[Rfam]
RNA sequence: AAGUUCCCUCGUGCAUCACUUCGGAGCCACUAUCGGAGUUCGUCAGUAACUCUCAAUUUGCUCUGAGGAAAGUCCCUGGACCUCCGGCAGAGAGUGCCGUAGCUUAAUUGUUAUAAGCCUCUCGCCGUCUUUCUCGAUUAAGGAUGGGAAGCUUCGGCUGAUCUUUCGAGAUUGGGUGAGUGUGUAUUGGUCAAAGCAAAGUUUAGAUGUGUUCGGGACGAAUCUUUAUCCAUCUUGUAUGGGUUGAAUCUGUCUAACUCAACAGGGCUUUCAACGAGGAAACU
Numbered sequence: 001a002a003g004u005u006c007c008c009u010c011g012u013g014c015a016u017c018a019c020u021u022c023g024g025a026g027c028c029a030c031u032a033u034c035g036g037a038g039u040u041c042g043u044c045a046g047u048a049a050c051u052c053u054c055a056a057u058u059u060g061c062u063c064u065g066a067g068g069a070a071a072g073u074c075c076c077u078g079g080a081c082c083u084c085c086g087g088c089a090g091a092g093a094g095u096g097c098c099g100u101a102g103c104u105u106a107a108u109u110g111u112u113a114u115a116a117g118c119c120u121c122u123c124g125c126c127g128u129c130u131u132u133c134u135c136g137a138u139u140a141a142g143g144a145u146g147g148g149a150a151g152c153u154u155c156g157g158c159u160g161a162u163c164u165u166u167c168g169a170g171a172u173u174g175g176g177u178g179a180g181u182g183u184g185u186a187u188u189g190g191u192c193a194a195a196g197c198a199a200a201g202u203u204u205a206g207a208u209g210u211g212u213u214c215g216g217g218a219c220g221a222a223u224c225u226u227u228a229u230c231c232a233u234c235u236u237g238u239a240u241g242g243g244u245u246g247a248a249u250c251u252g253u254c255u256a257a258c259u260c261a262a263c264a265g266g267g268c269u270u271u272c273a274a275c276g277a278g279g280a281a282a283c284u
Base pairs, nucleotide, nucleotide: 002284003283004282005281007279008278009277010276011275014209015208016207019206021066022065023064024063025062026061027060036052037051038050039049040048070270071269072268074267075266076265077264086098087097088096089095099114100113101112102111103110116183122179123178124177125176126175132171133170134169141165142164143163144162151158152157211254213252215250216249
Annotation:
The record is a 284-nucleotide sequence from Vespula pensylvanica, which matches "RNase MRP" in Rfam. The match comes from Rfam's covariance-model search (90 bits). About the family: RNase MRP is an enzymatically active ribonucleoprotein with two distinct roles in eukaryotes. In mitochondria it plays a direct role in the initiation of mitochondrial DNA replication. In the nucleus it is involved in precursor rRNA processing, where it cleaves the internal transcribed spacer 1 between 18S and 5.8S rRNAs. Despite distinct functions, RNase MRP has been shown to be evolutionarily related to RNase P. Like eukaryotic RNase P, RNase MRP is not catalytically active without associated protein subunits. The organism belongs to Vespula, within Eukaryota. The family is grouped with related families in Rfam's "RNaseP clan". Rfam classes the family as a ribozyme.